[Rfam]
RNA sequence: GGGUCAGACGAGCAGACACCCAUUGAAGUUCUGCUCUACCGUUAAAAGGAAGUAAACCAUCAUG
Numbered sequence: 001g002g003g004u005c006a007g008a009c010g011a012g013c014a015g016a017c018a019c020c021c022a023u024u025g026a027a028g029u030u031c032u033g034c035u036c037u038a039c040c041g042u043u044a045a046a047a048g049g050a051a052g053u054a055a056a057c058c059a060u061c062a063u064g
Base pairs, nucleotide, nucleotide: 001021002020003019004018010036011035012034013033014032015031016030
Dot-bracket structure: [[[[.....(((((((.]]]]........)))))))............................